[Rfam]
Nucleotides: 149
Stems, first nucleotide, its partner, number of pairs: 003073007011020001013018001026049001031043003035039001084140005096127002099124001101121005
Number, partner (000 for none) and nucleotide at each position: 001000a002000a003073g004072c005071g006070a007069a008068g009067g010000u011020c012000c013018c014000a015000g016000c017000a018013g019000a020011g021000g022000g023000g024000a025000a026049a027000c028000g029000a030000a031043c032042u033041c034000u035039g036000a037000g038000a039035u040000u041033g042032a043031g044000g045000c046000c047000c048000c049026u050000c051000u052000a053000a054000c055000u056000u057000u058000c059000a060000a061000a062000g063000a064000a065000a066000u067009c068008c069007u070006u071005c072004g073003c074000a075000g076000a077000u078000u079000u080000a081000u082000c083000u084140g085139c086138c087137g088136g089000a090000u091000c092000g093000u094000a095000g096127g097126a098000c099124g100000c101121c102120c103119a104118a105117a106000c107000u108000u109000g110000c111000a112000u113000u114000a115000a116000u117105u118104u119103u120102g121101g122000a123000u124099c125000g126097u127096c128000c129000g130000g131000a132000a133000c134000c135000c136088u137087c138086g139085g140084c141000g142000a143000u144000a145000u146000u147000u148000u149000u
Description: This 149-nucleotide RNA from Momordica charantia belongs to the Rfam family "Small nucleolar RNA snoR145". A search with the family's covariance model found it, with a score of 110 bits. On this family, see Chen and Wu, Nucleic Acids Res 2009: "Mining small RNA sequencing data: a new approach to identify small nucleolar RNAs in Arabidopsis". The source organism's lineage runs through Eukaryota, Streptophytina, Tracheophyta, fabids and Momordica. By type it is an H/ACA-box small nucleolar RNA.